This 89-nucleotide RNA sequence from Erinaceus europaeus belongs to the Rfam family "Vault RNA". The family's consensus secondary structure is taken from published work.

RNA sequence: GGGCUGGCUUUAGCUCAGCGGUUACUUCGUGCUUAACAAUCACACUUACGAGUGAGGUUCGAUACCCGCGGGCGCUCUCCAGCUCUUUU
Numbered sequence: 001g002g003g004c005u006g007g008c009u010u011u012a013g014c015u016c017a018g019c020g021g022u023u024a025c026u027u028c029g030u031g032c033u034u035a036a037c038a039a040u041c042a043c044a045c046u047u048a049c050g051a052g053u054g055a056g057g058u059u060c061g062a063u064a065c066c067c068g069c070g071g072g073c074g075c076u077c078u079c080c081a082g083c084u085c086u087u088u089u
Base pairs, nucleotide, nucleotide: 002084003083004082005081006080007079013073014072015071016070018069019068020067021066027062028061029060